[Rfam]
RNA sequence: GUGCUCACAAAACCACUUAUCCUGCCACGUGGCUGAGAUGGGUUCUGGGAAAAUGUGAGCUAGAGCAGAGUAUUGCUUUGGGAGUGUCACAUUCCAGACCACAUGUGACACUACAGUUUUCAAUACAACA
Numbered sequence: 001g002u003g004c005u006c007a008c009a010a011a012a013c014c015a016c017u018u019a020u021c022c023u024g025c026c027a028c029g030u031g032g033c034u035g036a037g038a039u040g041g042g043u044u045c046u047g048g049g050a051a052a053a054u055g056u057g058a059g060c061u062a063g064a065g066c067a068g069a070g071u072a073u074u075g076c077u078u079u080g081g082g083a084g085u086g087u088c089a090c091a092u093u094c095c096a097g098a099c100c101a102c103a104u105g106u107g108a109c110a111c112u113a114c115a116g117u118u119u120u121c122a123a124u125a126c127a128a129c130a
Stems, first nucleotide, its partner, number of pairs: 003060006013049002020047001025042002070126001072124004078116003083112008092101001
The record is a 130-nucleotide RNA sequence from Crotophaga sulcirostris, which matches "Small Cajal body specific RNA 23" in Rfam.
scaRNAs are a specific class of small nuclear RNAs which localise to the Cajal bodies and guide the modification of RNA polymerase II transcribed spliceosomal RNAs U1, U2, U4, U5 and U12. ACA11 belongs to the H/ACA box class of guide RNAs as it has the predicted hairpin-hinge-hairpin-tail structure,the conserved H/ACA-box motifs and is found associated with GAR1. H/ACA snRNAs are predicted to guide the modification of uridines to pseudouridines in substrate RNAs however, no target RNA has been identified for scaRNA ACA11.
Taxonomically the source falls in Crotophaga (Eukaryota, Archelosauria, Neognathae, Cuculiformes).
Rfam links the family to the GO terms Cajal body, nucleolus and RNA processing.
The family's RNA type in Rfam is small Cajal body RNA.